[Rfam]
RNA sequence: ACAUCCUUUUAAUACCUAGUCCAGAGAGGCAGGAAAAGGGAAACCAACUGGUAGAGUUCCGUGACAACAUGGAUCUUUGCUUGAAGGUACCCCUACAGCCUCUCAACACUUGUUGAGAGGUUUUCUUUUA
Numbered sequence: 001a002c003a004u005c006c007u008u009u010u011a012a013u014a015c016c017u018a019g020u021c022c023a024g025a026g027a028g029g030c031a032g033g034a035a036a037a038g039g040g041a042a043a044c045c046a047a048c049u050g051g052u053a054g055a056g057u058u059c060c061g062u063g064a065c066a067a068c069a070u071g072g073a074u075c076u077u078u079g080c081u082u083g084a085a086g087g088u089a090c091c092c093c094u095a096c097a098g099c100c101u102c103u104c105a106a107c108a109c110u111u112g113u114u115g116a117g118a119g120g121u122u123u124u125c126u127u128u129u130a
Base pairs, nucleotide, nucleotide: 004040005039006038007037008036009035016033017032019030020029021028050081051080052079053078054077055076056075058073059072060071061070062069063068095124097122098121099120100119101118102117103116104115105114106113107112
A member of the RNA family "PyrR binding site" from Paenisporosarcina sp. HGH0030, 130 nucleotides long.
Its family is annotated with pyrimidine nucleobase transport and pyrimidine nucleobase biosynthetic process in the Gene Ontology.
It is annotated as a cis-regulatory element.
It scores 63 bits against the family's covariance model.
The organism belongs to Paenisporosarcina, within Bacteria.